RNA sequence: AUGCUUGCGCAGAGGCAAUAUUGUAGUUUAUUAGGUUUAUCCAAGGCGUGAUCAUUGCUAGUUGAAAACUUUACCCAAAAUGCUGCUUGGAUGAUUUGAAAUAUAGUCGGCUGUGGCUAUAUUUGAUGGUCUCUUUGGAGA
Numbered sequence: 001a002u003g004c005u006u007g008c009g010c011a012g013a014g015g016c017a018a019u020a021u022u023g024u025a026g027u028u029u030a031u032u033a034g035g036u037u038u039a040u041c042c043a044a045g046g047c048g049u050g051a052u053c054a055u056u057g058c059u060a061g062u063u064g065a066a067a068a069c070u071u072u073a074c075c076c077a078a079a080a081u082g083c084u085g086c087u088u089g090g091a092u093g094a095u096u097u098g099a100a101a102u103a104u105a106g107u108c109g110g111c112u113g114u115g116g117c118u119a120u121a122u123u124u125g126a127u128g129g130u131c132u133c134u135u136u137g138g139a140g141a
Stems, first nucleotide, its partner, number of pairs: 020052005026047003034042002085117003088113003092109005130141004
RNA: U4 spliceosomal RNA
Organism: Bagarius yarrelli